This 95-nucleotide sequence from Culex flavivirus belongs to the Rfam family "Insect-Specific Flavivirus 3' UTR repeats Ra and Rb elements". Its Rfam clan is "Insect-Specific Flavivirus 3' UTR repeats Ra and Rb elements". It is one of the family's seed sequences. The family's consensus secondary structure was predicted with LocARNA. About the family: 3' UTRs in insect specific flavivirus families present three to four repeats of conserved element Ra and Rb.
RNA sequence: CGUAAGGAAGGACAAGGCUGUCCUUGAGUACUAACGACACUCCGGCCCCAGUUCCCAGAGCCAGGGUUUUAGCUCCACGGUGCUGGAAGUCACCC
Numbered sequence: 001c002g003u004a005a006g007g008a009a010g011g012a013c014a015a016g017g018c019u020g021u022c023c024u025u026g027a028g029u030a031c032u033a034a035c036g037a038c039a040c041u042c043c044g045g046c047c048c049c050a051g052u053u054c055c056c057a058g059a060g061c062c063a064g065g066g067u068u069u070u071a072g073c074u075c076c077a078c079g080g081u082g083c084u085g086g087a088a089g090u091c092a093c094c095c
Stems, first nucleotide, its partner, number of pairs: 003051001006048002008025007026042004052072002054066003079094004083089002